[Rfam]
RNA sequence: CCAACCCCCGUGGGAGAGAUCGGUUUCACCGACGCCGAAGGCGCAAUCCGCCCGGAAUCGCUCAGGCAAAAGGACCGCGGGGACUAG
Numbered sequence: 001c002c003a004a005c006c007c008c009c010g011u012g013g014g015a016g017a018g019a020u021c022g023g024u025u026u027c028a029c030c031g032a033c034g035c036c037g038a039a040g041g042c043g044c045a046a047u048c049c050g051c052c053c054g055g056a057a058u059c060g061c062u063c064a065g066g067c068a069a070a071a072g073g074a075c076c077g078c079g080g081g082g083a084c085u086a087g
Stems, first nucleotide, its partner, number of pairs: 006082008020032004034067003037063002041061003047055002
Dot-bracket structure: .....((((((((......((((.....)))).(((((..(((...((.....))...))))).))).......)))))))).....

This 87-nucleotide sequence from endosymbiont of Escarpia spicata belongs to the Rfam family "Glycine riboswitch aptamer".
A search with the family's covariance model found it, with a score of 72 bits.
The organism belongs to sulfur-oxidizing symbionts, within Bacteria.